[Rfam]
RNA sequence: GGCCAGGGGGAUUCCUGGCAGAGUGAUUUUUAGACUACAGGACUGAAUCACAUUGCCAGGGAUUUCCAAUGGCU
Numbered sequence: 001g002g003c004c005a006g007g008g009g010g011a012u013u014c015c016u017g018g019c020a021g022a023g024u025g026a027u028u029u030u031u032a033g034a035c036u037a038c039a040g041g042a043c044u045g046a047a048u049c050a051c052a053u054u055g056c057c058a059g060g061g062a063u064u065u066c067c068a069a070u071g072g073c074u
Stems, first nucleotide, its partner, number of pairs: 001074001003072003009067002011063011023051007
RNA: mir-23 microRNA precursor family
Organism: Takifugu rubripes